RNA sequence: GCCGGUCCUCGGUAGUGGCUACCGGAAACCAGCAGGCCACUGAAUUCGCACUGGGCCUUGCGGGAAGUUCCGGCGGCUUCGAUCGAUGAUCGGC
Numbered sequence: 001g002c003c004g005g006u007c008c009u010c011g012g013u014a015g016u017g018g019c020u021a022c023c024g025g026a027a028a029c030c031a032g033c034a035g036g037c038c039a040c041u042g043a044a045u046u047c048g049c050a051c052u053g054g055g056c057c058u059u060g061c062g063g064g065a066a067g068u069u070c071c072g073g074c075g076g077c078u079u080c081g082a083u084c085g086a087u088g089a090u091c092g093g094c
Stems, first nucleotide, its partner, number of pairs: 001094007009086005017078004022073006
RNA: Actino-pnp RNA
Organism: Nakamurella antarctica